[Rfam]
RNA sequence: CCUUAAAUAGUCUCACUGUUCUGAUGUAAUAAUCAGAGCAAGCUAAACAUUUGCUAUAUUAAGGCCAUCCAUGUGUCCCCGGAUUUGGUUCUUUCCUUAGGUCUGCUUUUAUCAAUGCUGGUGACAGAC
Numbered sequence: 001c002c003u004u005a006a007a008u009a010g011u012c013u014c015a016c017u018g019u020u021c022u023g024a025u026g027u028a029a030u031a032a033u034c035a036g037a038g039c040a041a042g043c044u045a046a047a048c049a050u051u052u053g054c055u056a057u058a059u060u061a062a063g064g065c066c067a068u069c070c071a072u073g074u075g076u077c078c079c080c081g082g083a084u085u086u087g088g089u090u091c092u093u094u095c096c097u098u099a100g101g102u103c104u105g106c107u108u109u110u111a112u113c114a115a116u117g118c119u120g121g122u123g124a125c126a127g128a129c
Stems, first nucleotide, its partner, number of pairs: 004053002017040009064122004070117001080105009
Overview: The family of this 129-nucleotide sequence from Ursus americanus is "Small nucleolar RNA SNORA72". It is annotated as an H/ACA-box small nucleolar RNA. A search with the family's covariance model found it, with a score of 98 bits.